The record is a 229-nucleotide sequence from Streptomyces genisteinicus, which matches "Streptomyces sRNA 4677" in Rfam.
[Rfam]
RNA sequence: CGCACGACGCAAAAAGCUCUCAAGUACCGGGAGCAAGAACCUCACCCACCCCACCGGAGCCCGUGACGCAACGCGUCACUCUCCCGGGUGACUUGGGCCGAUCGGACUGGAUUUCGGGCGGGUCGGCGGGCAUAUGCUCGCCGCGACAACUCCAGACAUGCGUCGGCCCCCGGCCGGGACUGCAAUCCCGAUCGAGGGCCUGACCACCGAGGAAGUAAGAGGCUUCCCG
Number, nucleotide and partner (000 for none) at each position: 001c000002g000003c000004a000005c000006g000007a000008c063009g062010c000011a000012a000013a000014a000015a000016g000017c000018u000019c000020u000021c000022a000023a000024g000025u000026a000027c000028c000029g000030g000031g000032a000033g000034c000035a000036a000037g000038a000039a000040c000041c000042u000043c000044a000045c000046c000047c000048a000049c000050c000051c000052c000053a000054c000055c000056g000057g000058a000059g000060c000061c000062c009063g008064u000065g000066a000067c000068g000069c000070a000071a000072c000073g000074c000075g000076u091077c090078a089079c088080u087081c086082u000083c000084c000085c000086g081087g080088g079089u078090g077091a076092c000093u000094u000095g000096g000097g000098c000099c000100g000101a000102u000103c000104g000105g000106a000107c000108u140109g139110g138111a000112u000113u000114u000115c000116g000117g000118g000119c000120g000121g000122g000123u000124c000125g000126g000127c000128g000129g000130g000131c000132a000133u000134a000135u000136g000137c000138u110139c109140g108141c000142c000143g000144c000145g000146a000147c000148a000149a000150c000151u000152c000153c000154a000155g000156a000157c000158a000159u000160g000161c000162g000163u000164c000165g200166g199167c198168c197169c196170c000171c194172g193173g000174c000175c000176g189177g188178g187179a186180c000181u000182g000183c000184a000185a000186u179187c178188c177189c176190g000191a000192u000193c172194g171195a000196g169197g168198g167199c166200c165201u000202g000203a000204c000205c000206a000207c000208c000209g000210a000211g227212g226213a225214a224215g223216u000217a000218a000219g000220a000221g000222g000223c215224u214225u213226c212227c211228c000229g000
The organism belongs to Streptomyces, within Bacteria.
Located in the intergenic region between anti-sigma factor SCO4677 gene and a putative regulatory protein gene SCO4676. scr4677 expression requires the SCO4677 activity and scr4677 sRNA itself seem to affect the levels of the SCO4676-associated transcripts.